[Rfam]
RNA sequence: ACCGAAUUAGGGAAUGAAGUUCUCCCUUGGGAAACCAGAACCGCAUAUUAAGCUGAUGACUUCUGUGAACAU
Numbered sequence: 001a002c003c004g005a006a007u008u009a010g011g012g013a014a015u016g017a018a019g020u021u022c023u024c025c026c027u028u029g030g031g032a033a034a035c036c037a038g039a040a041c042c043g044c045a046u047a048u049u050a051a052g053c054u055g056a057u058g059a060c061u062u063c064u065g066u067g068a069a070c071a072u
Stems, first nucleotide, its partner, number of pairs: 010026004016063006043053002
This 72-nucleotide sequence from [Clostridium] polysaccharolyticum belongs to the Rfam family "Fluoride riboswitch aptamer (crcB RNA motif)". A search with the family's covariance model found it, with a score of 40 bits. The base pairs follow the family's consensus structure, which is taken from published work.